[Rfam]
RNA sequence: GGUGCAAGCCGACUUGUCGCUGUUCUCUUUGAUGGGGAGAGAGGAAAGUCCGGGCUACAUAGAGCGCCAUAUUUCCUAACAGGAAGGGGUCAAGUUGGUGACGACUUGAUUACAGAAAGUGCCACAGAAAAUAUACCGUCCCGUCCCGAUAGCUAUCGGGAUCGGGAUAAGGGUGAAAAGGUGGGGUAAGAGCCCACCGCCCAAAUGGUGACAUUUGGGGCAUGGUAAACCUUAUGGGUUGAAAGAUCAAAUAGGUCCCGCGAUGAAACCUGGUUUCAUAAAAGGUUGCUCGUCUUUAUGCGGGAUGGGUAGAUCGAUAGAGUCAUUCCGUGAGGAAUGACCUAGAUAAAUGACAAGUGAUGCAUUCAUCAGGAAUGUUGAACAGAACCCGGCUUAUAGGCUUGCACCUAUU
Numbered sequence: 001g002g003u004g005c006a007a008g009c010c011g012a013c014u015u016g017u018c019g020c021u022g023u024u025c026u027c028u029u030u031g032a033u034g035g036g037g038a039g040a041g042a043g044g045a046a047a048g049u050c051c052g053g054g055c056u057a058c059a060u061a062g063a064g065c066g067c068c069a070u071a072u073u074u075c076c077u078a079a080c081a082g083g084a085a086g087g088g089g090u091c092a093a094g095u096u097g098g099u100g101a102c103g104a105c106u107u108g109a110u111u112a113c114a115g116a117a118a119g120u121g122c123c124a125c126a127g128a129a130a131a132u133a134u135a136c137c138g139u140c141c142c143g144u145c146c147c148g149a150u151a152g153c154u155a156u157c158g159g160g161a162u163c164g165g166g167a168u169a170a171g172g173g174u175g176a177a178a179a180g181g182u183g184g185g186g187u188a189a190g191a192g193c194c195c196a197c198c199g200c201c202c203a204a205a206u207g208g209u210g211a212c213a214u215u216u217g218g219g220g221c222a223u224g225g226u227a228a229a230c231c232u233u234a235u236g237g238g239u240u241g242a243a244a245g246a247u248c249a250a251a252u253a254g255g256u257c258c259c260g261c262g263a264u265g266a267a268a269c270c271u272g273g274u275u276u277c278a279u280a281a282a283a284g285g286u287u288g289c290u291c292g293u294c295u296u297u298a299u300g301c302g303g304g305a306u307g308g309g310u311a312g313a314u315c316g317a318u319a320g321a322g323u324c325a326u327u328c329c330g331u332g333a334g335g336a337a338u339g340a341c342c343u344a345g346a347u348a349a350a351u352g353a354c355a356a357g358u359g360a361u362g363c364a365u366u367c368a369u370c371a372g373g374a375a376u377g378u379u380g381a382a383c384a385g386a387a388c389c390c391g392g393c394u395u396a397u398a399g400g401c402u403u404g405c406a407c408c409u410a411u412u
Base pairs, nucleotide, nucleotide: 001408002407003406004405005404006403007402008401009400010399011397012358013357014356015355016354017353018352020041021040023038024037025036026035027034046395047394048393050392051391052390053389054388055241057239058238062291063290064289065288067237068236069235070234071233072086073085074084075083076082087113088111089110090109091108092107093106094105095104096103097102114232115231119230120229121226122225123224136172137171138168139167140166141165142164143163146160180198181197182196183195184194185193199221200219201218202217203216204215205214206213207212245315246314247313248312255306256305257304258303259302260301282296283295284294285293286292322341323340324339325338326337327336328335329334

A member of the RNA family "Bacterial RNase P class A" from Aquiflexum balticum, 412 nucleotides long. It is annotated as a ribozyme.